Rfam assigns this 241-nucleotide RNA sequence to the family "Group II catalytic intron D1-D4-6".
Rfam 15.1 lists 1,617 matches to the family in 661 species.
Pairs were carried over by alignment from the consensus structure.
About the family: Group II introns are found in rRNA, tRNA and mRNA of organelles in fungi, plants and protists, and also in mRNA in bacteria.
RNA sequence: AAACUCCUGACCUGGUAACUCUUGGAGCAAAGAGGCCAGUAUCUAGUCCUUGGGCAUUGUAUCGUGAGGUACAGUGUUAAGCGUAGGAAGGAAAGACUUAGAGCCCUAAAGCGAAAGCCUGAAGCAAUCUAGCGUCGUUAGUCUCGAUAAAGUGGUGGGUGAUGCUGUCAUAGGAGCCGCAACCAAUAUAGGUUGAAUUGUUAUGCCAGAUUCAAUCGGACACCACCGGCGUUUUAAAGCA
Numbered sequence: 001a002a003a004c005u006c007c008u009g010a011c012c013u014g015g016u017a018a019c020u021c022u023u024g025g026a027g028c029a030a031a032g033a034g035g036c037c038a039g040u041a042u043c044u045a046g047u048c049c050u051u052g053g054g055c056a057u058u059g060u061a062u063c064g065u066g067a068g069g070u071a072c073a074g075u076g077u078u079a080a081g082c083g084u085a086g087g088a089a090g091g092a093a094a095g096a097c098u099u100a101g102a103g104c105c106c107u108a109a110a111g112c113g114a115a116a117g118c119c120u121g122a123a124g125c126a127a128u129c130u131a132g133c134g135u136c137g138u139u140a141g142u143c144u145c146g147a148u149a150a151a152g153u154g155g156u157g158g159g160u161g162a163u164g165c166u167g168u169c170a171u172a173g174g175a176g177c178c179g180c181a182a183c184c185a186a187u188a189u190a191g192g193u194u195g196a197a198u199u200g201u202u203a204u205g206c207c208a209g210a211u212u213c214a215a216u217c218g219g220a221c222a223c224c225a226c227c228g229g230c231g232u233u234u235u236a237a238a239g240c241a
Base pairs, nucleotide, nucleotide: 012039013038014037015036019034020033022031027206028205042091043090048087049086050085051083052082053078054077055076056075057074058073059072060071061070062069063068132232133231134230135229136228137227152226153225154224155223156222157221158184159183160182164177165176166175189220191217192216193215194214195213196212197211198210199209